Rfam assigns this 69-nucleotide RNA sequence from Nonomuraea longispora to the family "ASpks TB sRNA". The family's RNA type in Rfam is antisense RNA. The source organism's lineage runs through Bacteria, Bacillati, Streptosporangiales, Streptosporangiaceae and Nonomuraea. The base pairs follow the family's consensus structure, which is taken from published work.
RNA sequence: CUUCACCGAGCCGAGCCAGAGCGGCUGCUCCCGAUCCUGCCCGUACGUGGCGAUGAGCGCCUGGGCCUC
Numbered sequence: 001c002u003u004c005a006c007c008g009a010g011c012c013g014a015g016c017c018a019g020a021g022c023g024g025c026u027g028c029u030c031c032c033g034a035u036c037c038u039g040c041c042c043g044u045a046c047g048u049g050g051c052g053a054u055g056a057g058c059g060c061c062u063g064g065g066c067c068u069c
Stems, first nucleotide, its partner, number of pairs: 014026004028065003032059002038053001041050003